RNA sequence: CCCAGCGCUCACGCGCUGGGCUACCAACUGGCGCCACUACGUGGCU
Dot-bracket structure: ((((((((....))))))))............(((((...))))).
The family of this 46-nucleotide RNA sequence from Candidatus Korobacter versatilis is "Acido-Lenti-1 RNA". The source organism's lineage runs through Bacteria, Pseudomonadati, Terriglobia, Candidatus Korobacteraceae and Candidatus Korobacter versatilis. It is annotated as a small RNA. Rfam 15.1 lists 2,607 matches to the family in 171 species.